[Rfam]
RNA sequence: AUGCACAAGAGGUUAUAUGAGUGCCCUAUAUCAAUUUCCAUUCUUUAACUUUGUCAGCUGGGAUUGUUUAUAUUCAGUUGAUUUUCAUGGCUGGUACAUUA
Numbered sequence: 001a002u003g004c005a006c007a008a009g010a011g012g013u014u015a016u017a018u019g020a021g022u023g024c025c026c027u028a029u030a031u032c033a034a035u036u037u038c039c040a041u042u043c044u045u046u047a048a049c050u051u052u053g054u055c056a057g058c059u060g061g062g063a064u065u066g067u068u069u070a071u072a073u074u075c076a077g078u079u080g081a082u083u084u085u086c087a088u089g090g091c092u093g094g095u096a097c098a099u100u101a
Stems, first nucleotide, its partner, number of pairs: 038094003042090001053082008
RNA: Small nucleolar RNA snoR99
Organism: Jatropha curcas